[Rfam]
RNA sequence: UAAAUAAAUAAAUGUUUACCGCAGACAGCAGGUGCGCUUGCCGCUUAAUUUCCUGCCGAGGUAGUUUUCGCCGCACUUUCGAGAUGGGAUAAGUGUGGAUAUAUAGAGAACAAAACCUUCAUGUCUGUGGACAUGAAGGUUUUUUGUGGUUUUU
Numbered sequence: 001u002a003a004a005u006a007a008a009u010a011a012a013u014g015u016u017u018a019c020c021g022c023a024g025a026c027a028g029c030a031g032g033u034g035c036g037c038u039u040g041c042c043g044c045u046u047a048a049u050u051u052c053c054u055g056c057c058g059a060g061g062u063a064g065u066u067u068u069c070g071c072c073g074c075a076c077u078u079u080c081g082a083g084a085u086g087g088g089a090u091a092a093g094u095g096u097g098g099a100u101a102u103a104u105a106g107a108g109a110a111c112a113a114a115a116c117c118u119u120c121a122u123g124u125c126u127g128u129g130g131a132c133a134u135g136a137a138g139g140u141u142u143u144u145u146g147u148g149g150u151u152u153u154u
Stems, first nucleotide, its partner, number of pairs: 028056005034044003116139010
Background:
This 154-nucleotide RNA from Alteribacillus persepolensis belongs to the Rfam family "Ribosomal protein L10 leader". The family's consensus secondary structure was predicted with CMfinder. From the family's description: This family is a putative r-protein leader autoregulatory structure found in B. subtilis and other low-GC Gram-positive bacteria. It is located in the 5' untranslated regions of mRNAs encoding ribosomal proteins L10 and L12 (rplJ-rplL). A Rho-independent transcription terminator structure that is probably involved in regulation is included at the 3' end. Rfam links the family to the GO term regulation of gene expression. It is annotated as a cis-regulatory leader.